Source information
Shown here is a 110-nucleotide RNA sequence from Yersinia pestis, a member of the family "RprA RNA". By type it is a small RNA. The source organism's lineage runs through Bacteria, Enterobacterales, Yersinia pseudotuberculosis complex, Yersinia pestis and Yersinia pestis subsp. pestis bv. Medievalis. Rfam's curators write: Translational regulation of the stationary phase sigma factor RpoS is mediated by the formation of a double-stranded RNA stem-loop structure in the upstream region of the rpoS messenger RNA, occluding the translation initiation site. It is one of the family's seed sequences.
[Rfam]
RNA sequence: AAGGCGCUUAAAUAAACCAUUUAAUGAUAGCUUAUUUAAACGUCUGUGAUCUAGUACAUGUAUUGCUGUGUGUAGUCUUUGCCUGUCACCUAAGACAGGCUUUUUUUUUG
Numbered sequence: 001a002a003g004g005c006g007c008u009u010a011a012a013u014a015a016a017c018c019a020u021u022u023a024a025u026g027a028u029a030g031c032u033u034a035u036u037u038a039a040a041c042g043u044c045u046g047u048g049a050u051c052u053a054g055u056a057c058a059u060g061u062a063u064u065g066c067u068g069u070g071u072g073u074a075g076u077c078u079u080u081g082c083c084u085g086u087c088a089c090c091u092a093a094g095a096c097a098g099g100c101u102u103u104u105u106u107u108u109u110g
Stems, first nucleotide, its partner, number of pairs: 002022003032046001036042001064072003081100007
The base pairs follow the family's consensus structure, which was predicted with PFOLD. The literature on the family includes a 2001 paper in Mol Microbiol by Majdalani et al., "Regulation of RpoS by a novel small RNA: the characterization of RprA".